[Rfam]
RNA sequence: GUUUUCGUGAGGUCCCUACCUCCUCCCGGGGGCCUUUGCGAUCAGCGGCGGUGCCAAUCCUCCUCCCUGGCACCGCCGCAUCUU
Numbered sequence: 001g002u003u004u005u006c007g008u009g010a011g012g013u014c015c016c017u018a019c020c021u022c023c024u025c026c027c028g029g030g031g032g033c034c035u036u037u038g039c040g041a042u043c044a045g046c047g048g049c050g051g052u053g054c055c056a057a058u059c060c061u062c063c064u065c066c067c068u069g070g071c072a073c074c075g076c077c078g079c080a081u082c083u084u
Stems, first nucleotide, its partner, number of pairs: 009036001011035002014032004046078010
RNA: Conserved CCUCCUCCC motif stress-induced RNA 1
Organism: Tabrizicola piscis